[Rfam]
Notes
The family of this 140-nucleotide sequence from Sphenodon punctatus is "Small nucleolar RNA SNORA64/SNORA10 family". By type it is an H/ACA-box small nucleolar RNA. Lineage of the source: Eukaryota > Craniata > Amniota > Sphenodontidae > Sphenodon. A search with the family's covariance model found it, with a score of 57 bits. Rfam links the family to the GO terms nucleolus and RNA processing. About the family: This family belongs to the H/ACA class of small nucleolar RNAs (snoRNAs) which act as guides in the the modification of uridines to pseudouridines. This family includes the human snoRNAs U64 and ACA10 and mouse MBI-29. On this family, see Narayanan et al., EMBO J 1999: "Nucleolar localization signals of box H/ACA small nucleolar RNAs".
RNA sequence: ACUCUCUCAGCUCUGCCCAAUUGCACCUGGCCUGAGUGGUGCGAUUGUCGUUAUUGGAGAGAGAAAGCAAGUGAGCUCAGUAUGCACGGCAGCGGGACCUCACAACAUGGUCUCCCUGUUCCUUUGCGAGCUCGACAUUU
Numbered sequence: 001a002c003u004c005u006c007u008c009a010g011c012u013c014u015g016c017c018c019a020a021u022u023g024c025a026c027c028u029g030g031c032c033u034g035a036g037u038g039g040u041g042c043g044a045u046u047g048u049c050g051u052u053a054u055u056g057g058a059g060a061g062a063g064a065a066a067g068c069a070a071g072u073g074a075g076c077u078c079a080g081u082a083u084g085c086a087c088g089g090c091a092g093c094g095g096g097a098c099c100u101c102a103c104a105a106c107a108u109g110g111u112c113u114c115c116c117u118g119u120u121c122c123u124u125u126g127c128g129a130g131c132u133c134g135a136c137a138u139u140u
Stems, first nucleotide, its partner, number of pairs: 002067002005064004011059005019046008076130003082123001084121001091117002095113005